[Rfam]
RNA sequence: UCCCAAUGAAGUAUCAUUCACAUGGCUUCCUGUAAAGGUGAACCCACUGGGGCUGGCUGGGGAGAAGAGGAAAGUUUGCUCUAGAAGGAAUUUCUGCACAUGGGCAUGGGAG
Numbered sequence: 001u002c003c004c005a006a007u008g009a010a011g012u013a014u015c016a017u018u019c020a021c022a023u024g025g026c027u028u029c030c031u032g033u034a035a036a037g038g039u040g041a042a043c044c045c046a047c048u049g050g051g052g053c054u055g056g057c058u059g060g061g062g063a064g065a066a067g068a069g070g071a072a073a074g075u076u077u078g079c080u081c082u083a084g085a086a087g088g089a090a091u092u093u094c095u096g097c098a099c100a101u102g103g104g105c106a107u108g109g110g111a112g
Stems, first nucleotide, its partner, number of pairs: 001111004
Dot-bracket structure: ((((.......................................................................................................)))).